[Rfam]
RNA sequence: AGAGGCCCUCCAUGGCAGAGGUGGAAUGCUUGUCUCGUUGCCAGGGCAACGAGACAAGCAUUCCACCAUGCCACUCAUGCUGCCUGC
Numbered sequence: 001a002g003a004g005g006c007c008c009u010c011c012a013u014g015g016c017a018g019a020g021g022u023g024g025a026a027u028g029c030u031u032g033u034c035u036c037g038u039u040g041c042c043a044g045g046g047c048a049a050c051g052a053g054a055c056a057a058g059c060a061u062u063c064c065a066c067c068a069u070g071c072c073a074c075u076c077a078u079g080c081u082g083c084c085u086g087c
Stems, first nucleotide, its partner, number of pairs: 004084003013073005020067014037050005
Dot-bracket structure: ...(((......(((((..((((((((((((((...(((((....)))))...)))))))))))))).)))))........)))...